This 258-nucleotide RNA from Clostridium novyi belongs to the Rfam family "T-box leader". It is annotated as a cis-regulatory leader. The organism belongs to Clostridium novyi, within Bacteria. Rfam's curators write: Uncharged tRNA acts as the effector for transcription antitermination of genes in the T-box leader family.
RNA sequence: UUAAAUUCUAUGAAGAGAAAAAGUAGGAUAUAUUGUUGUUCCAAAGAGAGUUGGUGAUUUGCUGAAAGCCAAUGUUCGAUGUAUAUUUGAAAAUCAUCUCUGAGAAGUAAAGCUGAAAGUUUAGUAAGUUUUAUCGGAAAUUUCACCGUUAAAAGAAAAGCGUAUUAUUUAGUACGUAAUUGAGUGCUAUGAAAAUAUAGUUUAGUUUUAUAUUUUUAUAGAAUUAGGGUGGUAACGCGAAUAUACCUCGUCCCUUUU
Numbered sequence: 001u002u003a004a005a006u007u008c009u010a011u012g013a014a015g016a017g018a019a020a021a022a023g024u025a026g027g028a029u030a031u032a033u034u035g036u037u038g039u040u041c042c043a044a045a046g047a048g049a050g051u052u053g054g055u056g057a058u059u060u061g062c063u064g065a066a067a068g069c070c071a072a073u074g075u076u077c078g079a080u081g082u083a084u085a086u087u088u089g090a091a092a093a094u095c096a097u098c099u100c101u102g103a104g105a106a107g108u109a110a111a112g113c114u115g116a117a118a119g120u121u122u123a124g125u126a127a128g129u130u131u132u133a134u135c136g137g138a139a140a141u142u143u144c145a146c147c148g149u150u151a152a153a154a155g156a157a158a159a160g161c162g163u164a165u166u167a168u169u170u171a172g173u174a175c176g177u178a179a180u181u182g183a184g185u186g187c188u189a190u191g192a193a194a195a196u197a198u199a200g201u202u203u204a205g206u207u208u209u210a211u212a213u214u215u216u217u218a219u220a221g222a223a224u225u226a227g228g229g230u231g232g233u234a235a236c237g238c239g240a241a242u243a244u245a246c247c248u249c250g251u252c253c254c255u256u257u258u
Stems, first nucleotide, its partner, number of pairs: 007105002015100004026088006041074001050073006108133007135148003187221014226255004237251004